[Rfam]
RNA sequence: AAGUCUCUCUUGUUAGACCAGAUCGAGCCUAGGAGCUCUCUGACCAGCGAAGGAACCCAC
Numbered sequence: 001a002a003g004u005c006u007c008u009c010u011u012g013u014u015a016g017a018c019c020a021g022a023u024c025g026a027g028c029c030u031a032g033g034a035g036c037u038c039u040c041u042g043a044c045c046a047g048c049g050a051a052g053g054a055a056c057c058c059a060c
Base pairs, nucleotide, nucleotide: 003056004055006054007053008052010050011049012048013047014046016044019042020041021040022039025038026037027036028035